[Rfam]
RNA sequence: GGAGCUGGCCGGACAGUCGCUGCACUCAAUCGAGUGGGGAGGAAAGUCCGGGCUUCAUAGGACAGGGUGCCAGGUAACGCCUGGGCGGCGCAAGCCGACGACCAGUGCAGCAGAGAGUAAACCGCCGAUGGCUUUUUCGAAGGCACAGGUAAGGGUGAAAGGGUGCGGUAAGAGCGCACCGCGCGGCUAGCAAUAGUUCGUGGCACGGUAAACUCCACCCGAAGCAAGACCAAAUAGGCCCCCUAAUGGCGUGGUCCGCGUUGGGGGCGGGUAGGUUGCUUGAGCCGUAGAGCGAUUUACGGCCUAGACGAAUGGCUGUCACCCUCUCUGAGGGCAUACAGAACCCGGCUUACAGGCCAGCUCCAAUU
Numbered sequence: 001g002g003a004g005c006u007g008g009c010c011g012g013a014c015a016g017u018c019g020c021u022g023c024a025c026u027c028a029a030u031c032g033a034g035u036g037g038g039g040a041g042g043a044a045a046g047u048c049c050g051g052g053c054u055u056c057a058u059a060g061g062a063c064a065g066g067g068u069g070c071c072a073g074g075u076a077a078c079g080c081c082u083g084g085g086c087g088g089c090g091c092a093a094g095c096c097g098a099c100g101a102c103c104a105g106u107g108c109a110g111c112a113g114a115g116a117g118u119a120a121a122c123c124g125c126c127g128a129u130g131g132c133u134u135u136u137u138c139g140a141a142g143g144c145a146c147a148g149g150u151a152a153g154g155g156u157g158a159a160a161g162g163g164u165g166c167g168g169u170a171a172g173a174g175c176g177c178a179c180c181g182c183g184c185g186g187c188u189a190g191c192a193a194u195a196g197u198u199c200g201u202g203g204c205a206c207g208g209u210a211a212a213c214u215c216c217a218c219c220c221g222a223a224g225c226a227a228g229a230c231c232a233a234a235u236a237g238g239c240c241c242c243c244u245a246a247u248g249g250c251g252u253g254g255u256c257c258g259c260g261u262u263g264g265g266g267g268c269g270g271g272u273a274g275g276u277u278g279c280u281u282g283a284g285c286c287g288u289a290g291a292g293c294g295a296u297u298u299a300c301g302g303c304c305u306a307g308a309c310g311a312a313u314g315g316c317u318g319u320c321a322c323c324c325u326c327u328c329u330g331a332g333g334g335c336a337u338a339c340a341g342a343a344c345c346c347g348g349c350u351u352a353c354a355g356g357c358c359a360g361c362u363c364c365a366a367u368u
Base pairs, nucleotide, nucleotide: 001364002363003362004361005360006359007358008357009356010355011353012320013319014318015317016316017315018314020039021038023036024035025034026033027032044351045350046349048348049347050346051345052344053224054223055222056221060257061256062255063254065220066219067218068217069216070084071083072082073081074080085099086097087096088095089094100215101214105213106212107209108208122154123153124150125149126148129145130144132142133141134140162180163179164178165177166176167175181204182202183201184200185199186198187196188195189194228277229276230275231274238268239267240266241265242264243263248262249261250260251259252258284303285302286301287300288299289298290297291296